Rfam assigns this 508-nucleotide RNA sequence from Actinomadura hallensis to the family "Saccharopolyspora sRNA 350". Taxonomically the source falls in Actinomadura (Bacteria, Bacillati, Actinomycetota, Thermomonosporaceae). A search with the family's covariance model found it, with a score of 180 bits. Pairs were carried over by alignment from the consensus structure, which was predicted with RNAfold. For this family Rfam cites "Prediction and characterization of small non-coding RNAs related to secondary metabolites in Saccharopolyspora erythraea" (Liu et al., PLoS One, 2013).
[Rfam]
RNA sequence: UCUCCGGUUCCUCGUCCUCCUCGGUGCCGAGGAGGGCCUGCUCGCCGAUGAAGUCGCCGUCGGCCAGCGUCCCGAGCACGGCGUCGGCCCCGUACUCGCCGGCGCCGAUCCGGUUGAGCUUGCCGUGCGCGACGAGGAUGACGCGGUCGACGGGGCGGCCGCGUUCCACGAUGACGUCGCCGGGCUCGUGCUCCUGCUGGGUGAACCGCCCGGCGAUGGCGUCGAGCGUGAGGUCGUCGUCGUAGCCGCGCAGCGGGGGCAGCUCCCCCAGCUCGCGCGGGAUGACCCGCACGUCGGCGCCGGUGGUCACGAACGUCACCCGCCCGUCGCCGAGGGUGUAGGUGAGCCGCCGGUUGACGCGGUAGGCGCCGCCGGACGCCUGGACCCAGGGCAGCAGUUUCAGCAGCCACCGCGAGCUGAUGCCCUGCAUCUGGGGGACGGACUUGGUCGUCGUCGCGAGGUUCCGUGCCGCCGCGGUGCCCAGGCUCAGGCGCUGCUGGUUCUCCUG
Dot-bracket structure: .....(((..((.(.(.(....((((.((..((..(((....((((((.(...(((.(((((((........((((.((((........)))).)))).....)))).......(...(..((.((((.((..(.(...(.....(....(..(((..(..(((...)))..).....)))..)..)...).).)..)).))..)).))..)...)..))).)))...)(.(...((((((.....((((.(((.(((......)))...)))))))...))))))...).).))))))..)))..)).....)).)).))...((((......))))........(((.(((....(.......)..))).)))).).).)))))(((((((.(((.(.(.(.......)).)..))).))))))).....(.((.((((((((.((.......)).))).))))).)).).........(((.....................)))